Rfam assigns this 193-nucleotide sequence from Phtheirospermum japonicum to the family "small nucleolar RNA snoR143". On this family, see Chen and Wu, Nucleic Acids Res 2009: "Mining small RNA sequencing data: a new approach to identify small nucleolar RNAs in Arabidopsis". The family has 3 seed sequences and 660 matches in Rfam 15.1.
RNA sequence: UUGCACUGCGUAUCAAAGGCCUUCCCCAAUAUUCUCAAGAAUAUACAUAAAUAAAUGGAGAAUCCUUUCGAUCGAAUGUGCAGAAAUGAAAUGCCGAGCUCGAAUCGGCGGCGGCCAGACAACCGCUGAGAUGGAUCCACAGAGUAGCGCCGCUUCUUCCACGGCGCUUUUCUACUAAAUCCAUCUCAAAUUU
Numbered sequence: 001u002u003g004c005a006c007u008g009c010g011u012a013u014c015a016a017a018g019g020c021c022u023u024c025c026c027c028a029a030u031a032u033u034c035u036c037a038a039g040a041a042u043a044u045a046c047a048u049a050a051a052u053a054a055a056u057g058g059a060g061a062a063u064c065c066u067u068u069c070g071a072u073c074g075a076a077u078g079u080g081c082a083g084a085a086a087u088g089a090a091a092u093g094c095c096g097a098g099c100u101c102g103a104a105u106c107g108g109c110g111g112c113g114g115c116c117a118g119a120c121a122a123c124c125g126c127u128g129a130g131a132u133g134g135a136u137c138c139a140c141a142g143a144g145u146a147g148c149g150c151c152g153c154u155u156c157u158u159c160c161a162c163g164g165c166g167c168u169u170u171u172c173u174a175c176u177a178a179a180u181c182c183a184u185c186u187c188a189a190a191u192u193u
Stems, first nucleotide, its partner, number of pairs: 002082005009074002013071002016068004022062003026058002128187008146168007